[Rfam]
RNA: U1 spliceosomal RNA
RNA sequence: AUACUUACCUGGCAGUGUGAUACCAUGAUCACGAAGGUGGUUUUCCCAGGGCGAGGCUUAUCCAUUGCACUGUAGGUGUGCUGACCCCUGCGAUUUCCCCAAAUGUGGGAAACUCAACUGCAUAAUUUGUGGUAGUGGGGGACUGCAUUUGCGCUCUAA
Numbered sequence: 001a002u003a004c005u006u007a008c009c010u011g012g013c014a015g016u017g018u019g020a021u022a023c024c025a026u027g028a029u030c031a032c033g034a035a036g037g038u039g040g041u042u043u044u045c046c047c048a049g050g051g052c053g054a055g056g057c058u059u060a061u062c063c064a065u066u067g068c069a070c071u072g073u074a075g076g077u078g079u080g081c082u083g084a085c086c087c088c089u090g091c092g093a094u095u096u097c098c099c100c101a102a103a104u105g106u107g108g109g110a111a112a113c114u115c116a117a118c119u120g121c122a123u124a125a126u127u128u129g130u131g132g133u134a135g136u137g138g139g140g141g142a143c144u145g146c147a148u149u150u151g152c153g154c155u156c157u158a159a
Stems, first nucleotide, its partner, number of pairs: 012121004017046001019043002022041005048089004053085001055082003059078004092115002094112003098108002142157001145154002